Rfam assigns this 127-nucleotide RNA from Neogobius melanostomus to the family "Small nucleolar RNA SNORA49". Its family is annotated with nucleolus and RNA processing in the Gene Ontology. Rfam's curators write: The snoRNA ACA49 has no identified RNA target. NB genomic sequence 1-nt different from published. Rfam classes the family as an H/ACA-box small nucleolar RNA.
RNA sequence: CUCCCCAUCUUACACCAGGGCCUCCUGGUGCUGGAAAGCUCUGUUUUUCAAAUGGGGUAAAAUAAAGUGCUUUCUUCCCUCCCUGCUGGAUAGUGUUCCUUCCAGGGUCUACAAACGAGCGCACAUU
Dot-bracket structure: ..((((((.......(((((..(((.......)))...)))))........))))))..........(((..(.......(((((..((........))...))))).........).)))......